This 229-nucleotide RNA sequence from Cellulomonas sp. SLBN-39 belongs to the Rfam family "Actinobacteria sRNA Ms_IGR-5". On this family, see Li et al., RNA 2013: "Identification of small RNAs in Mycobacterium smegmatis using heterologous Hfq".
[Rfam]
RNA sequence: ACACUGAAGGGAGGUGGUCCGAGACAUGAAGUCUUUCCGGACGCGUGAGGUGGCUGCCCGCUAGUCGCCCGAAGCAUCGGACGGAUUGCUCGAUCCGCUGAUCGCCCCGCCGGCAACCCGGCCGGGCGCCUGGUGAAUCUCCGGCAGUCACCGCAGCCCGUGGGUUGCCGCGACCUCGUCCUUCGCGGCAGGACCUCUCCCGAGAGGCCCGGCCCACGGGCUGUUGCCU
Numbered sequence: 001a002c003a004c005u006g007a008a009g010g011g012a013g014g015u016g017g018u019c020c021g022a023g024a025c026a027u028g029a030a031g032u033c034u035u036u037c038c039g040g041a042c043g044c045g046u047g048a049g050g051u052g053g054c055u056g057c058c059c060g061c062u063a064g065u066c067g068c069c070c071g072a073a074g075c076a077u078c079g080g081a082c083g084g085a086u087u088g089c090u091c092g093a094u095c096c097g098c099u100g101a102u103c104g105c106c107c108c109g110c111c112g113g114c115a116a117c118c119c120g121g122c123c124g125g126g127c128g129c130c131u132g133g134u135g136a137a138u139c140u141c142c143g144g145c146a147g148u149c150a151c152c153g154c155a156g157c158c159c160g161u162g163g164g165u166u167g168c169c170g171c172g173a174c175c176u177c178g179u180c181c182u183u184c185g186c187g188g189c190a191g192g193a194c195c196u197c198u199c200c201c202g203a204g205a206g207g208c209c210c211g212g213c214c215c216a217c218g219g220g221c222u223g224u225u226g227c228c229u
Stems, first nucleotide, its partner, number of pairs: 013058006059135006067127004154223013168188006
Dot-bracket structure: ............((((((..................................))))))((((((..((((.....................................................))))..))))))..................(((((((((((((.((((((.........))))))......................)))))))))))))......

Annotation: Rfam classes the family as a small RNA. The pairing is the family consensus, mapped onto this sequence. Lineage of the source: Bacteria > Bacillati > Actinomycetota > Cellulomonadaceae > Cellulomonas. It scores 78 bits against the family's covariance model.